The record is a 182-nucleotide RNA sequence from Mergibacter septicus, which matches "Lysine riboswitch aptamer" in Rfam. About the family: Riboswitches are metabolite binding domains within certain messenger RNAs that serve as precision sensors for their corresponding targets. On this family, see Mandal et al., Cell 2003: "Riboswitches Control Fundamental Biochemical Pathways in Bacillus subtilis and Other Bacteria".
RNA sequence: UACAUUUGUAGAGGUGCGAUUACUAUAAGUAUCUUUUUCGAGCUGACAACGUUGAAAAAAAGGGAAAGGAGUAACCGCCGAAAUCAAUCAAGCGUCAUCUUGAUUGGUUGGUAUCGUUAUCGAAAGGGGCGAUACUGCCAUAGUAUUUUUAUUAUUUAUAACUAUGGAGCGCUACAGUUAGG
Dot-bracket structure: .....((((((....(((.(((((.......(((((((..................)))))))......))))).)))...(((((((((((......)))))))))))(((((((((.(.....).))))))))).(((((((................)))))))....)))))).....
Numbered sequence: 001u002a003c004a005u006u007u008g009u010a011g012a013g014g015u016g017c018g019a020u021u022a023c024u025a026u027a028a029g030u031a032u033c034u035u036u037u038u039c040g041a042g043c044u045g046a047c048a049a050c051g052u053u054g055a056a057a058a059a060a061a062g063g064g065a066a067a068g069g070a071g072u073a074a075c076c077g078c079c080g081a082a083a084u085c086a087a088u089c090a091a092g093c094g095u096c097a098u099c100u101u102g103a104u105u106g107g108u109u110g111g112u113a114u115c116g117u118u119a120u121c122g123a124a125a126g127g128g129g130c131g132a133u134a135c136u137g138c139c140a141u142a143g144u145a146u147u148u149u150u151a152u153u154a155u156u157u158a159u160a161a162c163u164a165u166g167g168a169g170c171g172c173u174a175c176a177g178u179u180a181g182g
Stems, first nucleotide, its partner, number of pairs: 006177006016078003020074005032063007082109011110136009120126001138167007